[Rfam]
RNA sequence: GAAAUACUAAUUUCUAUAGAAAAAGUAUUUCUUUAUCGUCGUCCCACCCCAACUUACAUUGUCUGUAGAAAUUGGGAAUCCAAUUUCUCUUUGUUGGGGCCCACACCCCAACUUGCAUUGUCUGUAGAAUUUCUUUUCGAAAUUCUCUGUGUUGGGGCCCCUGACUAGAAUUGAAAAAAGCUUGUUACAAGCGCAUUUUCGUUCAGUCAACUACUGCCAAUAUAACUUCGUAGAGCAUAGAACAUUGAUUUAU
Number, nucleotide and partner (000 for none) at each position: 001g037002a036003a000004a034005u000006a032007c000008u000009a030010a029011u000012u027013u000014c000015u000016a000017u000018a000019g000020a000021a000022a000023a000024a000025g000026u000027a012028u000029u010030u009031c000032u006033u000034u004035a000036u002037c001038g000039u000040c000041g000042u000043c000044c000045c000046a000047c000048c000049c000050c000051a000052a125053c124054u000055u000056a121057c120058a119059u000060u117061g116062u115063c000064u000065g000066u000067a088068g087069a086070a085071a084072u083073u082074g081075g080076g000077a000078a000079u000080c075081c074082a073083a072084u071085u070086u069087c068088u067089c000090u000091u000092u000093g112094u111095u110096g109097g108098g107099g106100c000101c000102c000103a000104c000105a000106c099107c098108c097109c096110a095111a094112c093113u000114u000115g062116c061117a060118u000119u058120g057121u056122c000123u000124g053125u052126a146127g145128a144129a143130u142131u141132u140133c139134u000135u000136u000137u000138c000139g133140a132141a131142a130143u129144u128145c127146u126147c000148u224149g223150u222151g221152u220153u219154g218155g217156g000157g215158c000159c000160c000161c000162u209163g208164a207165c206166u205167a000168g204169a203170a202171u201172u000173g200174a199175a198176a197177a196178a000179a000180g192181c191182u190183u189184g000185u000186u000187a000188c000189a183190a182191g181192c180193g000194c000195a000196u177197u176198u175199u174200c173201g171202u170203u169204c168205a166206g165207u164208c163209a162210a000211c000212u000213a000214c000215u157216g000217c155218c154219a153220a152221u151222a150223u149224a148225a000226c000227u000228u000229c000230g253231u252232a251233g250234a249235g000236c247237a246238u000239a000240g000241a000242a000243c000244a000245u000246u237247g236248a000249u234250u233251u232252a231253u230
RNA: Staphylococcus sRNA 35 (srn_0335)